[Rfam]
RNA sequence: ACUGUUGAUGAAGAUGAUCUCAUCAGCUACAUCAUUGCCGGACUUGAUGAAGAUUUCGAGCCGGUCAUCUCUUCCAUCGUCGGGCACCCUGAUCAGGUCACUUUUGGAGAAGCCUUCGCUCAGCUCUUGAGCUUUGAGC
Numbered sequence: 001a002c003u004g005u006u007g008a009u010g011a012a013g014a015u016g017a018u019c020u021c022a023u024c025a026g027c028u029a030c031a032u033c034a035u036u037g038c039c040g041g042a043c044u045u046g047a048u049g050a051a052g053a054u055u056u057c058g059a060g061c062c063g064g065u066c067a068u069c070u071c072u073u074c075c076a077u078c079g080u081c082g083g084g085c086a087c088c089c090u091g092a093u094c095a096g097g098u099c100a101c102u103u104u105u106g107g108a109g110a111a112g113c114c115u116u117c118g119c120u121c122a123g124c125u126c127u128u129g130a131g132c133u134u135u136g137a138g139c
Base pairs, nucleotide, nucleotide: 005137006136007135008134089107090106091105092104
Annotation
This 139-nucleotide RNA sequence from Oryza meridionalis belongs to the Rfam family "Small nucleolar RNA Z247". It scores 79 bits against the family's covariance model. Lineage of the source: Eukaryota > Streptophytina > Embryophyta > Poaceae > Oryza. Gene Ontology terms of the family: RNA processing and nucleolus. The family's consensus secondary structure was predicted with PFOLD.